[Rfam]
RNA sequence: CGCCUAACCCUUAUAGUUUUCUAUGAGAUAUGGUGAAAAAUCCACACGAGUGUAGAGACGGCUUUCCGUCUGGUACUACUCGUGUGGUCAAUACCCGAAAGGGUGUUGGAUGCCCUAAAAAGCAUC
Numbered sequence: 001c002g003c004c005u006a007a008c009c010c011u012u013a014u015a016g017u018u019u020u021c022u023a024u025g026a027g028a029u030a031u032g033g034u035g036a037a038a039a040a041u042c043c044a045c046a047c048g049a050g051u052g053u054a055g056a057g058a059c060g061g062c063u064u065u066c067c068g069u070c071u072g073g074u075a076c077u078a079c080u081c082g083u084g085u086g087g088u089c090a091a092u093a094c095c096c097g098a099a100a101g102g103g104u105g106u107u108g109g110a111u112g113c114c115c116u117a118a119a120a121a122g123c124a125u126c
Base pairs, nucleotide, nucleotide: 001035002034003033004032010027011026012025013024014023015022042087043086044085045084046083047082048081049080050079051078054074056071057070058069059068060067089108090107091106092105093104094103095102096101109126110125111124112123113122
RNA: LOOT RNA